RNA sequence: CGAGUUGAUCGCUAGGGUUCCAGCAUCUCUUUGAUGUGUUCGGUCCGAGAGCGGUUGCCGCGGCGGGAGACAUCCGCCCGGAUGCACGGCGGGAUAAAAGCCCGGGAGAC
Numbered sequence: 001c002g003a004g005u006u007g008a009u010c011g012c013u014a015g016g017g018u019u020c021c022a023g024c025a026u027c028u029c030u031u032u033g034a035u036g037u038g039u040u041c042g043g044u045c046c047g048a049g050a051g052c053g054g055u056u057g058c059c060g061c062g063g064c065g066g067g068a069g070a071c072a073u074c075c076g077c078c079c080g081g082a083u084g085c086a087c088g089g090c091g092g093g094a095u096a097a098a099a100g101c102c103c104g105g106g107a108g109a110c
Stems, first nucleotide, its partner, number of pairs: 007056006015046002020043002022040001023037005057083001059081001062078005085105001087108001091103003

Shown here is a 110-nucleotide RNA sequence from Methylorubrum extorquens, a member of the family "Guanidine-I riboswitch aptamer".